[Rfam]
RNA sequence: AUACCGAGGGGCGCCUUCAAAGGCCGAUCAAGAAGAACCAUGGCCUAGGUCAGUGGCCUCCAUUGCACUUUGGAGGAGCAUUGGCUUACCAUCUCCCGAAAUGGGAGAGUGGAUGUUGUAAUUUGUGGCAAAGGGGGUACGCGUUCGCGCGGCCCCUA
Numbered sequence: 001a002u003a004c005c006g007a008g009g010g011g012c013g014c015c016u017u018c019a020a021a022g023g024c025c026g027a028u029c030a031a032g033a034a035g036a037a038c039c040a041u042g043g044c045c046u047a048g049g050u051c052a053g054u055g056g057c058c059u060c061c062a063u064u065g066c067a068c069u070u071u072g073g074a075g076g077a078g079c080a081u082u083g084g085c086u087u088a089c090c091a092u093c094u095c096c097c098g099a100a101a102u103g104g105g106a107g108a109g110u111g112g113a114u115g116u117u118g119u120a121a122u123u124u125g126u127g128g129c130a131a132a133g134g135g136g137g138u139a140c141g142c143g144u145u146c147g148c149g150c151g152g153c154c155c156c157u158a
Stems, first nucleotide, its partner, number of pairs: 008117002011114001013044001015043002022039002046088004051084001053081003058076002060073002089112003092108003095104002133157005140151004
Overview: The family of this 158-nucleotide sequence from Digitaria exilis is "U1 spliceosomal RNA". The family's RNA type in Rfam is spliceosomal small nuclear RNA. The match comes from Rfam's covariance-model search (79 bits). About the family: U1 is a small nuclear RNA (snRNA) component of the spliceosome (involved in pre-mRNA splicing). Its 5' end forms complementary base pairs with the 5' splice junction, thus defining the 5' donor site of an intron. There are significant differences in sequence and secondary structure between metazoan and yeast U1 snRNAs, the latter being much longer (568 nucleotides as compared to 164 nucleotides in human). The base pairs follow the family's consensus structure, which is taken from published work.